[Rfam]
Overview:
Small nucleolar RNA SNORA13: a 134-nucleotide RNA sequence from Pelodiscus sinensis. NCBI's taxonomy places the organism under Eukaryota, Teleostomi, Euteleostomi, Dipnotetrapodomorpha, Pelodiscus. Rfam describes the family as follows. ACA13 is a member of the H/ACA class of snoRNA that guide the sites of modification of uridines to pseudouridines. The family's consensus secondary structure was predicted with CMfinder. It is annotated as an H/ACA-box small nucleolar RNA. Gene Ontology terms of the family: RNA processing and nucleolus.
RNA sequence: UGCCUUUGUGUUGCCCGCUCAUUUUUGUUACUAAUGAUUGUGGUGUCAAGAAAGGCAUAAAGAAAGUCCUUCUGCAGUAUUAUUUGAUACUGGGGAUUAAUCUCUCCCCUGAUUCUGCUGAAUAAGGGACAGUU
Numbered sequence: 001u002g003c004c005u006u007u008g009u010g011u012u013g014c015c016c017g018c019u020c021a022u023u024u025u026u027g028u029u030a031c032u033a034a035u036g037a038u039u040g041u042g043g044u045g046u047c048a049a050g051a052a053a054g055g056c057a058u059a060a061a062g063a064a065a066g067u068c069c070u071u072c073u074g075c076a077g078u079a080u081u082a083u084u085u086g087a088u089a090c091u092g093g094g095g096a097u098u099a100a101u102c103u104c105u106c107c108c109c110u111g112a113u114u115c116u117g118c119u120g121a122a123u124a125a126g127g128g129a130c131a132g133u134u
Stems, first nucleotide, its partner, number of pairs: 002056006009048002012045004016040002019037005068127004075120004086113001088111001093104002
Dot-bracket structure: .((((((.((.((((((.(((((.........))))).)).)))).))..))))))...........((((...((((.......(.(....((........))......).)...))))...)))).......